[Rfam]
RNA sequence: CCUCUGGACUACUACAUCAAACCUAAGUAGGUUGUUAGUAAUAACUUCCAAACAGGAGUAGGAUGAAUGAGGAA
Numbered sequence: 001c002c003u004c005u006g007g008a009c010u011a012c013u014a015c016a017u018c019a020a021a022c023c024u025a026a027g028u029a030g031g032u033u034g035u036u037a038g039u040a041a042u043a044a045c046u047u048c049c050a051a052a053c054a055g056g057a058g059u060a061g062g063a064u065g066a067a068u069g070a071g072g073a074a
Stems, first nucleotide, its partner, number of pairs: 001072004009061005022056003030049002034045002